The record is a 120-nucleotide RNA from Arthrobacter sp. ISL-28, which matches "mraW RNA" in Rfam. The family has 45 seed sequences and 851 matches in Rfam 15.1. It is annotated as a cis-regulatory element.
[Rfam]
RNA sequence: ACCUGUUUCUUGGACGAGAUCUCCAGCCGCCCAUCCACCGUCCUCCUGGCUCACUUCCCCGGAGCCAGGCGGCCGCCAGGAGAGGCGCGGAUGGGGAUCUGGCUCAAGAAACACCCCUAG
Numbered sequence: 001a002c003c004u005g006u007u008u009c010u011u012g013g014a015c016g017a018g019a020u021c022u023c024c025a026g027c028c029g030c031c032c033a034u035c036c037a038c039c040g041u042c043c044u045c046c047u048g049g050c051u052c053a054c055u056u057c058c059c060c061g062g063a064g065c066c067a068g069g070c071g072g073c074c075g076c077c078a079g080g081a082g083a084g085g086c087g088c089g090g091a092u093g094g095g096g097a098u099c100u101g102g103c104u105c106a107a108g109a110a111a112c113a114c115c116c117c118u119a120g
Stems, first nucleotide, its partner, number of pairs: 010107004015102001018099002021096005027090004031085002034082001040073003045069008